[Rfam]
RNA: Small nucleolar RNA Z105
RNA sequence: AUGGCAUGAUGAGGAAGAAAGUAUAUGUUUGCAGAUCUAAUAAAAAUGAUUGAAGCAAAACCUCCUACUCAUUCUGA
Numbered sequence: 001a002u003g004g005c006a007u008g009a010u011g012a013g014g015a016a017g018a019a020a021g022u023a024u025a026u027g028u029u030u031g032c033a034g035a036u037c038u039a040a041u042a043a044a045a046a047u048g049a050u051u052g053a054a055g056c057a058a059a060a061c062c063u064c065c066u067a068c069u070c071a072u073u074c075u076g077a
Base pairs, nucleotide, nucleotide: 006072007071008070009069032052037048